[Rfam]
RNA sequence: GAUCACGAGUUCCAACGCGAAGCCCUGGCUGGUUGGACGGCAACCCUCUUCGUGGUGGGGUGCCCCAGGUGAAGAUCCGGCCGGGCACAACCGUGCGCCGGCAAGUACCGAGC
Numbered sequence: 001g002a003u004c005a006c007g008a009g010u011u012c013c014a015a016c017g018c019g020a021a022g023c024c025c026u027g028g029c030u031g032g033u034u035g036g037a038c039g040g041c042a043a044c045c046c047u048c049u050u051c052g053u054g055g056u057g058g059g060g061u062g063c064c065c066c067a068g069g070u071g072a073a074g075a076u077c078c079g080g081c082c083g084g085g086c087a088c089a090a091c092c093g094u095g096c097g098c099c100g101g102c103a104a105g106u107a108c109c110g111a112g113c
Stems, first nucleotide, its partner, number of pairs: 001077004009038001011037006021030002039064003044060003048055002080102005085096004